[Rfam]
RNA: MIR2619 microRNA precursor family
RNA sequence: AAACAACCCUAUGUAUUGGAUCUUUAGUAGUUUUGGCCCCCAAUGCCAUUUUUGACUUAGUCUUUGCUGAUGUGGCACCCACAUCCCUUAAGUGAGAUGCCACAUGUCGACCAUUGUGGGUGCCACGUCAGUGAAGACUAAGUCAAAAGUGGUCUUGGGGACCAUAACUGUUAAAGAUCCAAUACAUAUGAGGCUGUUU
Numbered sequence: 001a002a003a004c005a006a007c008c009c010u011a012u013g014u015a016u017u018g019g020a021u022c023u024u025u026a027g028u029a030g031u032u033u034u035g036g037c038c039c040c041c042a043a044u045g046c047c048a049u050u051u052u053u054g055a056c057u058u059a060g061u062c063u064u065u066g067c068u069g070a071u072g073u074g075g076c077a078c079c080c081a082c083a084u085c086c087c088u089u090a091a092g093u094g095a096g097a098u099g100c101c102a103c104a105u106g107u108c109g110a111c112c113a114u115u116g117u118g119g120g121u122g123c124c125a126c127g128u129c130a131g132u133g134a135a136g137a138c139u140a141a142g143u144c145a146a147a148a149g150u151g152g153u154c155u156u157g158g159g160g161a162c163c164a165u166a167a168c169u170g171u172u173a174a175a176g177a178u179c180c181a182a183u184a185c186a187u188a189u190g191a192g193g194c195u196g197u198u199u
Stems, first nucleotide, its partner, number of pairs: 001199002004196002007193002010188023034164003038160006070128002073125008